[Rfam]
RNA: Bacterial large subunit ribosomal RNA, nucleotides 2639 to 2903
RNA sequence: GGAGGAGUGAGGGAGGCCGCCCCCAGUACGAGAGGACCGGGGUGGGCGGACCUCCGGUGACCCGGUUGUCGCGCCAGCGGCACCGCCGGGUAGCUGCGUCCGGAAGGGUGAACCGCUGAAGGCAUCUAAGCGGGAACCCCCGCCCAAGACCUCCUCCCGGAGUGCUUCGGCACUCCCUGAAGGCCACAGGAAGACGACCUGCUUGAUAGGCCGGAGGUGGAAGCGCGGCAACGCGCGUAGCCGACCGGUACUAAGCGGCCGGGUG
Numbered sequence: 001g002g003a004g005g006a007g008u009g010a011g012g013g014a015g016g017c018c019g020c021c022c023c024c025a026g027u028a029c030g031a032g033a034g035g036a037c038c039g040g041g042g043u044g045g046g047c048g049g050a051c052c053u054c055c056g057g058u059g060a061c062c063c064g065g066u067u068g069u070c071g072c073g074c075c076a077g078c079g080g081c082a083c084c085g086c087c088g089g090g091u092a093g094c095u096g097c098g099u100c101c102g103g104a105a106g107g108g109u110g111a112a113c114c115g116c117u118g119a120a121g122g123c124a125u126c127u128a129a130g131c132g133g134g135a136a137c138c139c140c141c142g143c144c145c146a147a148g149a150c151c152u153c154c155u156c157c158c159g160g161a162g163u164g165c166u167u168c169g170g171c172a173c174u175c176c177c178u179g180a181a182g183g184c185c186a187c188a189g190g191a192a193g194a195c196g197a198c199c200u201g202c203u204u205g206a207u208a209g210g211c212c213g214g215a216g217g218u219g220g221a222a223g224c225g226c227g228g229c230a231a232c233g234c235g236c237g238u239a240g241c242c243g244a245c246c247g248g249u250a251c252u253a254a255g256c257g258g259c260c261g262g263g264u265g
Stems, first nucleotide, its partner, number of pairs: 001157006011145003017045007047102005055096003062089005067082006106140003113133005160177001162175001182260004187201004207253003210249005216242002223236005